RNA sequence: UCCAGCUCUCAGUCAGCUGUCCAGACUGUGUGUGUCUGGCUCAGUGUUACAGUGCUGGUAGAGAAGGUCCUGUGUUGUGCUUCACUGCAGCGGGUUCUGUUUUAGAGUCCGCUGCUGCUGAGCUGCUGCAGGACUCGGCCCAGUGAGAGUGGACUGUCCUGAUACUGACAGCAGGGCAGGCCUAGUACAGGGCCAUACAAC
Number, nucleotide and partner (000 for none) at each position: 001u000002c058003c057004a056005g055006c054007u000008c052009u051010c000011a000012g050013u049014c000015a000016g045017c044018u043019g042020u000021c000022c038023a037024g036025a035026c034027u000028g000029u000030g000031u000032g000033u000034g026035u025036c024037u023038g022039g000040c000041u000042c019043a018044g017045u016046g000047u000048u000049a013050c012051a009052g008053u000054g006055c005056u004057g003058g002059u000060a000061g000062a000063g000064a000065a000066g000067g134068u133069c132070c131071u130072g129073u128074g127075u000076u000077g000078u000079g124080c000081u122082u121083c120084a000085c117086u000087g115088c114089a113090g112091c000092g110093g109094g108095u107096u106097c105098u104099g000100u000101u000102u000103u000104a098105g097106a096107g095108u094109c093110c092111g000112c090113u089114g088115c087116u000117g085118c000119u000120g083121a082122g081123c000124u079125g000126c000127u074128g073129c072130a071131g070132g069133a068134c067135u000136c000137g194138g193139c192140c191141c190142a000143g000144u000145g000146a000147g000148a000149g000150u000151g182152g181153a000154c000155u178156g177157u176158c175159c174160u173161g172162a000163u000164a000165c000166u000167g000168a000169c000170a000171g000172c161173a160174g159175g158176g157177c156178a155179g000180g000181c152182c151183u000184a000185g000186u000187a000188c000189a000190g141191g140192g139193c138194c137195a000196u000197a000198c000199a000200a000201c000